[Rfam]
RNA sequence: AUAUCGGCGCAGGAGUUUUGCUGUUUGUCCUGCUUGUUGCUGCUCUAAGGAGAACGGUGUCCGAGCAGCAGGCGAUCG
Numbered sequence: 001a002u003a004u005c006g007g008c009g010c011a012g013g014a015g016u017u018u019u020g021c022u023g024u025u026u027g028u029c030c031u032g033c034u035u036g037u038u039g040c041u042g043c044u045c046u047a048a049g050g051a052g053a054a055c056g057g058u059g060u061c062c063g064a065g066c067a068g069c070a071g072g073c074g075a076u077c078g
Stems, first nucleotide, its partner, number of pairs: 003076004009033004038070008
Shown here is a 78-nucleotide sequence from Aliterella atlantica, a member of the family "CyVA-1 RNA". The organism belongs to Aliterella atlantica, within Bacteria. The match comes from Rfam's covariance-model search (69 bits). Rfam classes the family as a small RNA. Cyanobacteria, Acidobacteria (1 example), Verrucomicrobia (1 example).